[Rfam]
RNA sequence: GUGGGCUAUGGAGACAUGUGCCCUGUCACAAUCGGUGGCAAAAUCGUGGGUUCGUUGUGUGCCAUUGCUGGUGUGCUGACAAUUGCGCUACCUGUCCCUGUCAUAGUCUCAAAU
Numbered sequence: 001g002u003g004g005g006c007u008a009u010g011g012a013g014a015c016a017u018g019u020g021c022c023c024u025g026u027c028a029c030a031a032u033c034g035g036u037g038g039c040a041a042a043a044u045c046g047u048g049g050g051u052u053c054g055u056u057g058u059g060u061g062c063c064a065u066u067g068c069u070g071g072u073g074u075g076c077u078g079a080c081a082a083u084u085g086c087g088c089u090a091c092c093u094g095u096c097c098c099u100g101u102c103a104u105a106g107u108c109u110c111a112a113a114u
Stems, first nucleotide, its partner, number of pairs: 001114002005110001008107002011104001013102004018097001020095002037077004049063003
The family of this 114-nucleotide sequence from Lepisosteus oculatus is "Potassium channel RNA editing signal". The family's consensus secondary structure is taken from published work. From the family's description: This family represents a group of sequences related to the human potassium channel Kv1.1 hairpin element which directs the efficient modification of an adenosine to inosine by an adenosine deaminase acting on RNA (ADAR). The ADAR modification causes an isoleucine/valine recoding event which lies in the ion-conducting pore of the potassium channel. It is thought that this editing event targets the process of fast inactivation and allows a more rapid recovery from inactivation at negative potentials. Gene Ontology term of the family: adenosine to inosine editing.